Rfam assigns this 54-nucleotide RNA from Caenimonas koreensis to the family "nhaA-I RNA". It is annotated as a riboswitch. Rfam describes the family as follows. Acidobacteria, Alphaproteobacteria, Betaproteobacteria and Gammaproteobacteria, Verrucomicrobia, cand. division NC10. The family's consensus secondary structure is taken from published work.
RNA sequence: GGGUGUCCGUGCCAACCCGGCGCGACAGGUUCAUGCGCUGGUCGGGCCGCCACG
Numbered sequence: 001g002g003g004u005g006u007c008c009g010u011g012c013c014a015a016c017c018c019g020g021c022g023c024g025a026c027a028g029g030u031u032c033a034u035g036c037g038c039u040g041g042u043c044g045g046g047c048c049g050c051c052a053c054g
Stems, first nucleotide, its partner, number of pairs: 005026003009023004036054002039052004